[Rfam]
RNA sequence: UGUCCCGUCAUUGGGGAGUAGCCUACCUUCACACUUCUGGAGGUGCUUGCGUCAACACACUUGGCCGUUCGGCCAUGGCGUAAGCGGUUCCUAAGCUUGGCAAGACCUUUGACCAUACUGCCUUCGGACUGGCCGGGGAGAAGUAUGGUCAUUGGAAUUUUUGUCCGGCCUGGGAGC
Numbered sequence: 001u002g003u004c005c006c007g008u009c010a011u012u013g014g015g016g017a018g019u020a021g022c023c024u025a026c027c028u029u030c031a032c033a034c035u036u037c038u039g040g041a042g043g044u045g046c047u048u049g050c051g052u053c054a055a056c057a058c059a060c061u062u063g064g065c066c067g068u069u070c071g072g073c074c075a076u077g078g079c080g081u082a083a084g085c086g087g088u089u090c091c092u093a094a095g096c097u098u099g100g101c102a103a104g105a106c107c108u109u110u111g112a113c114c115a116u117a118c119u120g121c122c123u124u125c126g127g128a129c130u131g132g133c134c135g136g137g138g139a140g141a142a143g144u145a146u147g148g149u150c151a152u153u154g155g156a157a158u159u160u161u162u163g164u165c166c167g168g169c170c171u172g173g174g175a176g177c
Base pairs, nucleotide, nucleotide: 026043027042028041045085046084047083048082049081050080051079052078053077054076062075063074064073065072066071087177088176089175090174091173092172
A member of the RNA family "Manganese Mn2+ riboswitch aptamer (yybP-ykoY)" from Noviherbaspirillum sp. Root189, 177 nucleotides long.
The organism belongs to Noviherbaspirillum, within Bacteria.
Rfam describes the family as follows. This RNA was originally discovered in E. coli during a large scale screen and was named SraF. The family was later found to exist upstream of related families of protein genes in many bacteria, including the the yybP and ykoK genes in B. subtilis.
Pairs were carried over by alignment from the consensus structure.